[Rfam]
Description: The record is a 112-nucleotide sequence from Aneurinibacillus soli, which matches "SAM riboswitch aptamer (S box leader)" in Rfam. Rfam's curators write: The SAM riboswitch is found upstream of a number of genes which code for proteins involved in methionine or cysteine biosynthesis in Gram-positive bacteria.
RNA sequence: CUCUUAUCUAGAGAGGCAGAGGGACUGGCCCUAUGAAGCCUCGGCAACCUUGAAUCAUUAUGGUUCAAACGGUGCUAAUUCCAGCAGCGCAAAUGACGCUGAAAGAUAAGAG
Dot-bracket structure: ((((((((....(((((...(((.[[[[)))......)))))((((.((((((((.......))))))..))))))...(]]]](((((.......)))))..)))))))))
Numbered sequence: 001c002u003c004u005u006a007u008c009u010a011g012a013g014a015g016g017c018a019g020a021g022g023g024a025c026u027g028g029c030c031c032u033a034u035g036a037a038g039c040c041u042c043g044g045c046a047a048c049c050u051u052g053a054a055u056c057a058u059u060a061u062g063g064u065u066c067a068a069a070c071g072g073u074g075c076u077a078a079u080u081c082c083a084g085c086a087g088c089g090c091a092a093a094u095g096a097c098g099c100u101g102a103a104a105g106a107u108a109a110g111a112g
Stems, first nucleotide, its partner, number of pairs: 001112008013042005021031003025084004043076004048072002050068006080104001085101005